A member of the RNA family "ALIL pseudoknot" from Nitrosomonas aestuarii, 117 nucleotides long.

RNA sequence: CGCAUAUUUUGCCCAGGCGGAGCUCGACCGCCGACCGAAGUGACAGUGGUAUUUGUUGAUCAGCACAAGAAACAGUACGGGGUCGAGCCGAUUUGCAGGCAACUUCAGAUUGCCCCG
Numbered sequence: 001c002g003c004a005u006a007u008u009u010u011g012c013c014c015a016g017g018c019g020g021a022g023c024u025c026g027a028c029c030g031c032c033g034a035c036c037g038a039a040g041u042g043a044c045a046g047u048g049g050u051a052u053u054u055g056u057u058g059a060u061c062a063g064c065a066c067a068a069g070a071a072a073c074a075g076u077a078c079g080g081g082g083u084c085g086a087g088c089c090g091a092u093u094u095g096c097a098g099g100c101a102a103c104u105u106c107a108g109a110u111u112g113c114c115c116c117g
Stems, first nucleotide, its partner, number of pairs: 016032005078117005089112002092109004097104002

Rfam links the family to the GO term positive regulation of translational frameshifting. It scores 100 bits against the family's covariance model. On this family, see Mazauric et al., J Biol Chem 2008: "Apical loop-internal loop RNA pseudoknots: a new type of stimulator of -1 translational frameshifting in bacteria". The base pairs follow the family's consensus structure, which is taken from published work.